[Rfam]
RNA sequence: UGGGGCGUCGGCAAGCGGUUAAGCCACCAGACUUUGACUCUGGCAUGCGUAGGUUCGAAUCCUACCGCCCCAG
Dot-bracket structure: (((((((..(((..........))).(((((.......))))).....(((((.......)))))))))))).
Numbered sequence: 001u002g003g004g005g006c007g008u009c010g011g012c013a014a015g016c017g018g019u020u021a022a023g024c025c026a027c028c029a030g031a032c033u034u035u036g037a038c039u040c041u042g043g044c045a046u047g048c049g050u051a052g053g054u055u056c057g058a059a060u061c062c063u064a065c066c067g068c069c070c071c072a073g
Stems, first nucleotide, its partner, number of pairs: 001072007010025003027043005049065005
This 73-nucleotide RNA sequence from Achromatium sp. WMS2 belongs to the Rfam family "tRNA".
The family is grouped with related families in Rfam's "tRNA clan".
The family's consensus secondary structure is taken from published work.
The family's RNA type in Rfam is transfer RNA.
The match comes from Rfam's covariance-model search (63 bits).
Taxonomically the source falls in Achromatium (Bacteria, Pseudomonadati, Thiotrichales, Thiotrichaceae).